[Rfam]
Nucleotides: 256
Base pairs, nucleotide, nucleotide: 007235008234009233010232016078017077018076019075091106092105093104094103095102096101121156122155123154124153125152192227193226194225195224196223198221199220200219202215203214204213205212238254239253240252241251242250
Number, partner (000 for none) and nucleotide at each position: 001000c002000g003000c004000u005000c006000c007235g008234g009233u010232g011000c012000c013000u014000c015000c016078g017077g018076c019075g020000g021000c022000u023000g024000a025000g026000a027000g028000g029000a030000c031000a032000a033000a034000g035000a036000a037000c038000g039000a040000c041000c042000g043000g044000g045000g046000a047000a048000a049000g050000c051000a052000c053000c054000c055000c056000c057000a058000c059000c060000a061000g062000a063000c064000c065000c066000c067000a068000c069000c070000c071000c072000u073000c074000c075019c076018g077017c078016c079000c080000g081000u082000g083000g084000c085000c086000c087000c088000g089000c090000c091106u092105c093104a094103c095102u096101c097000g098000g099000g100000c101096g102095g103094g104093u105092g106091a107000a108000c109000a110000u111000u112000c113000c114000c115000c116000a117000a118000c119000g120000g121156g122155c123154u124153g125152g126000a127000u128000u129000u130000c131000g132000c133000g134000g135000c136000c137000c138000c139000u140000g141000a142000g143000g144000c145000c146000c147000g148000a149000c150000g151000c152125u153124c154123a155122g156121c157000g158000c159000a160000a161000c162000g163000c164000a165000c166000c167000a168000c169000c170000a171000c172000c173000a174000c175000a176000a177000c178000c179000g180000c181000a182000g183000a184000c185000a186000u187000g188000a189000g190000a191000c192227g193226g194225c195224c196223c197000c198221c199220g200219c201000c202215g203214g204213g205212a206000c207000g208000g209000c210000a211000a212205u213204c214203c215202c216000a217000g218000g219200g220199c221198g222000a223196g224195g225194g226193c227192c228000u229000g230000a231000c232010c233009a234008c235007c236000g237000a238254g239253g240252a241251a242250g243000a244000u245000a246000a247000g248000g249000g250242c251241u252240u253239c254238c255000c256000g